UnaL2 LINE 3' element: a 54-nucleotide sequence from Oncorhynchus kisutch.
The eel long interspersed element (LINE) UnaL2 and its partner short interspersed element (SINE) share a conserved 3' tail containing a stem-loop that is critical for their retrotransposition.
The family's RNA type in Rfam is cis-regulatory element.
The match comes from Rfam's covariance-model search (58 bits).
NCBI's taxonomy places the organism under Eukaryota, Actinopteri, Teleostei, Clupeocephala, Oncorhynchus.

[Rfam]
RNA sequence: UGCAUGCAUGACUGUAAUUCACUUUGUAUAAAAGCAUCUGCUAAAUGGCUUAUA
Number, nucleotide and partner (000 for none) at each position: 001u000002g000003c000004a000005u000006g000007c000008a000009u000010g000011a000012c000013u043014g041015u040016a039017a000018u000019u000020c000021a000022c034023u033024u032025u031026g000027u000028a000029u000030a000031a025032a024033a023034g022035c000036a000037u000038c000039u016040g015041c014042u000043a013044a000045a000046u000047g000048g000049c000050u000051u000052a000053u000054a000